Description
Shown here is a 93-nucleotide sequence from Yersinia pestis, a member of the family "SodC 5' UTR thermometer". From the family's description: Involved in protection against oxidative stress.

RNA sequence: GUCAAAAGUUUCCUAUUGACAAGGUUAAACCAGACUUAAUCAACAUAUAAGGGAUAUAACAAUAUGAAAUUAAGUACAUUAUUGCUACCUGUU
Numbered sequence: 001g002u003c004a005a006a007a008g009u010u011u012c013c014u015a016u017u018g019a020c021a022a023g024g025u026u027a028a029a030c031c032a033g034a035c036u037u038a039a040u041c042a043a044c045a046u047a048u049a050a051g052g053g054a055u056a057u058a059a060c061a062a063u064a065u066g067a068a069a070u071u072a073a074g075u076a077c078a079u080u081a082u083u084g085c086u087a088c089c090u091g092u093u
Base pairs, nucleotide, nucleotide: 007071008070009069010068011067012066014064015063016062017061018060023031024030025029046058047057048056049055
Rfam's curators put it in the seed alignment.